Annotation: A member of the RNA family "c-di-GMP-I-GGC riboswitch aptamer" from Candidatus Brocadia fulgida, 120 nucleotides long.

[Rfam]
RNA sequence: CACGACAAGGGCAAACCCUGAGUGAUCGGGGGACGCAAAGUAAAGGGUCUUUCAACUAAUAAGGAUGUAGUUAAAGACGUACCUUAUCCUUUAGCAAAAAAGAUAGCCUUACUGCCGAAG
Numbered sequence: 001c002a003c004g005a006c007a008a009g010g011g012c013a014a015a016c017c018c019u020g021a022g023u024g025a026u027c028g029g030g031g032g033a034c035g036c037a038a039a040g041u042a043a044a045g046g047g048u049c050u051u052u053c054a055a056c057u058a059a060u061a062a063g064g065a066u067g068u069a070g071u072u073a074a075a076g077a078c079g080u081a082c083c084u085u086a087u088c089c090u091u092u093a094g095c096a097a098a099a100a101a102g103a104u105a106g107c108c109u110u111a112c113u114g115c116c117g118a119a120g
Stems, first nucleotide, its partner, number of pairs: 001120001003117002011036002016031006034106001039113004044109003047104006
Dot-bracket structure: (.((......((...((((((....))))))..[))..((((.(((((((((..............................................)))))).])))))))..))..)